[Rfam]
RNA sequence: UGUCGCAUCAAAGAGGAAGUGAUUUGUUGAAUUUUCAUAUCACAGCCAGCUUUGAUGUACCAUA
Numbered sequence: 001u002g003u004c005g006c007a008u009c010a011a012a013g014a015g016g017a018a019g020u021g022a023u024u025u026g027u028u029g030a031a032u033u034u035u036c037a038u039a040u041c042a043c044a045g046c047c048a049g050c051u052u053u054g055a056u057g058u059a060c061c062a063u064a
Base pairs, nucleotide, nucleotide: 005058006057007056008055009054010053011052012051013050015047016046019043020042021041022040025039026038027037
Dot-bracket structure: ....(((((((((.((..((((..(((.........)))))))..))..)))))))))......